[Rfam]
RNA sequence: GGAUCAACAAUGACAACAAAUCUCUGAGGACGGUGAUCAACUCAUACAAAUGGCAACCUGAGGUCC
Numbered sequence: 001g002g003a004u005c006a007a008c009a010a011u012g013a014c015a016a017c018a019a020a021u022c023u024c025u026g027a028g029g030a031c032g033g034u035g036a037u038c039a040a041c042u043c044a045u046a047c048a049a050a051u052g053g054c055a056a057c058c059u060g061a062g063g064u065c066c
Stems, first nucleotide, its partner, number of pairs: 001066005
RNA: Small nucleolar RNA SNORD109A
Organism: Peromyscus maniculatus